[Rfam]
RNA sequence: UAAAAACUGUGAUGGUCAAAGCUCAUGGAAAUUGUAAGCCUUUUUGUGUACAAUUUUCGAGGGUUU
Numbered sequence: 001u002a003a004a005a006a007c008u009g010u011g012a013u014g015g016u017c018a019a020a021g022c023u024c025a026u027g028g029a030a031a032u033u034g035u036a037a038g039c040c041u042u043u044u045u046g047u048g049u050a051c052a053a054u055u056u057u058c059g060a061g062g063g064u065u066u
Base pairs, nucleotide, nucleotide: 019066020065021064022063023062024061033052034051035050036049